A member of the RNA family "PyrR binding site" from Oceanobacillus limi, 140 nucleotides long.

RNA sequence: GUUACCUUUAAUUCAGUCCCGUGAGACUGGCAAGGUGGAACAGACGUGGUCUGUUUUGUAAUGAAAUCGAAGGGGGAGGAUCCCCCUCCGAUUUGCAGUGCAUGAUAACACCUUGCCGAUUUGGCAAGGUGUUUUUAUUU
Numbered sequence: 001g002u003u004a005c006c007u008u009u010a011a012u013u014c015a016g017u018c019c020c021g022u023g024a025g026a027c028u029g030g031c032a033a034g035g036u037g038g039a040a041c042a043g044a045c046g047u048g049g050u051c052u053g054u055u056u057u058g059u060a061a062u063g064a065a066a067u068c069g070a071a072g073g074g075g076g077a078g079g080a081u082c083c084c085c086c087u088c089c090g091a092u093u094u095g096c097a098g099u100g101c102a103u104g105a106u107a108a109c110a111c112c113u114u115g116c117c118g119a120u121u122u123g124g125c126a127a128g129g130u131g132u133u134u135u136u137a138u139u140u
Stems, first nucleotide, its partner, number of pairs: 003037006013030006064094006071087006105135001107133012
It scores 64 bits against the family's covariance model. The family's RNA type in Rfam is cis-regulatory element.